[Rfam]
RNA sequence: AGCUGUCAAUGAUGAUCUUGUUUACAAAACAUUGGGAAUCUCUCUGAAUAAGGGUGAAAGAAGACUUGUUACUGAUGCAGUG
Numbered sequence: 001a002g003c004u005g006u007c008a009a010u011g012a013u014g015a016u017c018u019u020g021u022u023u024a025c026a027a028a029a030c031a032u033u034g035g036g037a038a039u040c041u042c043u044c045u046g047a048a049u050a051a052g053g054g055u056g057a058a059a060g061a062a063g064a065c066u067u068g069u070u071a072c073u074g075a076u077g078c079a080g081u082g
Stems, first nucleotide, its partner, number of pairs: 002081005
RNA: Small nucleolar RNA SNORD79
Organism: Cottoperca gobio